[Rfam]
RNA: Streptomyces-metH RNA
Organism: Streptomyces pseudogriseolus
Nucleotides: 147
Stems, first nucleotide, its partner, number of pairs: 060108004066103004111125002114123003
Number, partner (000 for none) and nucleotide at each position: 001000u002000u003000c004000g005000u006000c007000c008000g009000g010000c011000c012000c013000g014000u015000g016000g017000a018000c019000g020000c021000c022000c023000c024000c025000g026000a027000c028000g029000c030000c031000a032000g033000g034000g035000g036000g037000c038000c039000g040000u041000c042000c043000c044000g045000g046000a047000u048000a049000c050000c051000c052000u053000g054000a055000c056000g057000a058000g059000g060108u061107g062106c063105g064000c065000c066103c067102u068101g069100c070000c071000g072000g073000g074000g075000a076000a077000g078000c079000u080000c081000g082000a083000a084000c085000a086000g087000g088000u089000g090000a091000c092000u093000u094000u095000u096000c097000c098000g099000g100069g101068c102067a103066g104000c105063c106062g107061c108060a109000a110000a111125g112124c113000c114123g115122a116121c117000a118000g119000c120000c121116g122115u123114c124112g125111c126000a127000c128000c129000u130000g131000a132000g133000g134000g135000a136000g137000c138000c139000c140000c141000u142000u143000a144000c145000a146000u147000g